A member of the RNA family "Small nucleolar RNA SNORD10" from Bucco capensis, 119 nucleotides long. Taxonomically the source falls in Bucco (Eukaryota, Sauria, Theropoda, Aves). The match comes from Rfam's covariance-model search (43 bits). The family's consensus secondary structure was predicted with WAR. Gene Ontology terms of the family: RNA processing and nucleolus. The family's RNA type in Rfam is C/D-box small nucleolar RNA. The literature on the family includes a 2001 paper in EMBO J by Huttenhofer et al., "RNomics: an experimental approach that identifies 201 candidates for novel, small, non-messenger RNAs in mouse".

[Rfam]
RNA sequence: CCCCAGUGAUGACCCAAUGCGUGUCACCUGACCCUGGGGUCCCUGGGCUCCCAGUCCCUGGUGUCCUGCUGGGGCAGGGAACCCCCCCAGGGGCUGAUCAGGGUGCAAGGGCUGAGGGG
Numbered sequence: 001c002c003c004c005a006g007u008g009a010u011g012a013c014c015c016a017a018u019g020c021g022u023g024u025c026a027c028c029u030g031a032c033c034c035u036g037g038g039g040u041c042c043c044u045g046g047g048c049u050c051c052c053a054g055u056c057c058c059u060g061g062u063g064u065c066c067u068g069c070u071g072g073g074g075c076a077g078g079g080a081a082c083c084c085c086c087c088c089a090g091g092g093g094c095u096g097a098u099c100a101g102g103g104u105g106c107a108a109g110g111g112c113u114g115a116g117g118g119g
Stems, first nucleotide, its partner, number of pairs: 001119004041092005046085002